[Rfam]
RNA sequence: UUCCAGUGCGCGUCUAGCAAGAAGCCUGCGUCCGGGAGUGCCGGCAGCGCCGCCGGCCGGUGCUCGGCGCGCCGGGCCAUGCAGCGGCGGCCGCCGCGGAGCUCCGAGCGGCGGUAGCGCCCCUGUGAGGCGGCCAGAGAUGCCCCGGCCACUGUGACGGUUCCGCCCGCCAGGACACGCGCUCAGCCCCGGCCACUGUAGGCUCUGCGCGCCCCGCACAGUACAGACACCGGGCUAUUGAGCGUCGAGCGGGGCUGCCAGGCCGCCCAGCAGGGUGCAGGAAGCCGGCCUGUUCAGCUGCGGGGACACGCUCAGGUCUGACUCGGGCUGGCACUG
Dot-bracket structure: ((((.((((...........(.(.((.(...).))...).).((..(.(((...(..(((..(((((((.((((.((......))..))))))))).))....)))..).(((((.(.(((...(((...(.....)...)))...)))))))))...(.(((.((.((...(....((....(..(..(((...)))..)..((((...((........)).))))....)......))..)..)).))))).).....))))..))......)))).))))(((((((((...((....(((......)))....))....)))))))))....
The family of this 336-nucleotide RNA sequence from Lynx canadensis is "TrkB IRES".
Its family is annotated with ribosome binding in the Gene Ontology.
Pairs were carried over by alignment from the consensus structure, which was predicted with RNAfold.
The organism belongs to Lynx, within Eukaryota.
This family represents the TrkB internal ribosome entry site (IRES) which is present in the 5' leader sequence of the mRNA. TrkB is a neurotrophin receptor which is essential for the development and maintenance of the nervous system. The IRES element allows cap-independent translation of TrkB which may be needed for efficient translation in neuronal dendrites.
For this family Rfam cites "Internal initiation of translation of the TrkB mRNA is mediated by multiple regions within the 5' leader" (Dobson et al., Nucleic Acids Res, 2005).